[Rfam]
RNA sequence: GUCGAGCUCAGUAGCGAGAGCUUGUGACCUAUGUGGGGACAAUAAGAUGGUGGAACACUGGCCCGGGCCCACAGGUCGGAUCUGUUGUGGCAUGUUCUGGGCUGUGCCCGGUCCAAGCCGAGAGUGAUCCGUGUGUGCUGAGCGAAGGCUUGGCUCAGGCGGUUCCUAAAGAGGAGGGCAAUGCGUGAGGCUGGUUUCACAGAGCAGCGAUCACCUCCCUCUCUCGACAGUGGACGGAUAACAGCUCAAAGCCACUCAGAUCCAGCAUGGUCUGGUGGCUCGUACCCAGCUGAACCACCAUCUUU
Numbered sequence: 001g002u003c004g005a006g007c008u009c010a011g012u013a014g015c016g017a018g019a020g021c022u023u024g025u026g027a028c029c030u031a032u033g034u035g036g037g038g039a040c041a042a043u044a045a046g047a048u049g050g051u052g053g054a055a056c057a058c059u060g061g062c063c064c065g066g067g068c069c070c071a072c073a074g075g076u077c078g079g080a081u082c083u084g085u086u087g088u089g090g091c092a093u094g095u096u097c098u099g100g101g102c103u104g105u106g107c108c109c110g111g112u113c114c115a116a117g118c119c120g121a122g123a124g125u126g127a128u129c130c131g132u133g134u135g136u137g138c139u140g141a142g143c144g145a146a147g148g149c150u151u152g153g154c155u156c157a158g159g160c161g162g163u164u165c166c167u168a169a170a171g172a173g174g175a176g177g178g179c180a181a182u183g184c185g186u187g188a189g190g191c192u193g194g195u196u197u198c199a200c201a202g203a204g205c206a207g208c209g210a211u212c213a214c215c216u217c218c219c220u221c222u223c224u225c226g227a228c229a230g231u232g233g234a235c236g237g238a239u240a241a242c243a244g245c246u247c248a249a250a251g252c253c254a255c256u257c258a259g260a261u262c263c264a265g266c267a268u269g270g271u272c273u274g275g276u277g278g279c280u281c282g283u284a285c286c287c288a289g290c291u292g293a294a295c296c297a298c299c300a301u302c303u304u305u
Base pairs, nucleotide, nucleotide: 001040002039003038004023005022006021007020008019009018028037029036030035044304045303046302047301048300049299050298051297052296053295056292057291058289059288060287061285064282065281066280068278069277072274073273074272075271076270077269078263079262080261081260082259083258084257087255088254089253090252093250098248099247100246101245102244103243106242108237109236111235112234113233114232115231117228119226120225121224122223123222124221126165127164129162130161131160132159134157135156137154138153139152140151141150142149143148166171173218174217175216176215177214184209185208186207191202192201193200
Annotation: Shown here is a 305-nucleotide RNA sequence from Brassica oleracea, a member of the family "Plant signal recognition particle RNA". The family is grouped with related families in Rfam's "SRP clan".